[Rfam]
RNA sequence: GUCUUCUCUAUGAGCUCCUUCCUGCCAACAAAUCCAUGGCAGCCUAUGGAUUCGCACGAGAAGAAGAUUAACUGUUCAGUAUUGGCAAACUCACACUGUGGCUCUAUCAAUUGUGUUUCGCCAUUGCUGUUCAACAAGU
Dot-bracket structure: ..((((((.....(((((...(((((...........))))).....)))...))..))))))..........(..(((..............((.(.((.......))).)).............)))..).......
Numbered sequence: 001g002u003c004u005u006c007u008c009u010a011u012g013a014g015c016u017c018c019u020u021c022c023u024g025c026c027a028a029c030a031a032a033u034c035c036a037u038g039g040c041a042g043c044c045u046a047u048g049g050a051u052u053c054g055c056a057c058g059a060g061a062a063g064a065a066g067a068u069u070a071a072c073u074g075u076u077c078a079g080u081a082u083u084g085g086c087a088a089a090c091u092c093a094c095a096c097u098g099u100g101g102c103u104c105u106a107u108c109a110a111u112u113g114u115g116u117u118u119c120g121c122c123a124u125u126g127c128u129g130u131u132c133a134a135c136a137a138g139u
Stems, first nucleotide, its partner, number of pairs: 003063006014055002016050003022042005074132001077129003094113002097110001099109002